[Rfam]
RNA sequence: CAAACAGGGCAUCGGUUGAGUAUCCUUACGGGCUUUUCAAAUCGAUGACCUAUAAAGAAAGGAGUGCAGUUGAUGGCCCGUAUAGCCGGCAUUAACGUCCCUGAC
Numbered sequence: 001c002a003a004a005c006a007g008g009g010c011a012u013c014g015g016u017u018g019a020g021u022a023u024c025c026u027u028a029c030g031g032g033c034u035u036u037u038c039a040a041a042u043c044g045a046u047g048a049c050c051u052a053u054a055a056a057g058a059a060a061g062g063a064g065u066g067c068a069g070u071u072g073a074u075g076g077c078c079c080g081u082a083u084a085g086c087c088g089g090c091a092u093u094a095a096c097g098u099c100c101c102u103g104a105c
Stems, first nucleotide, its partner, number of pairs: 004053001006051003010047004024089002029080004037104003
RNA: Alpha operon ribosome binding site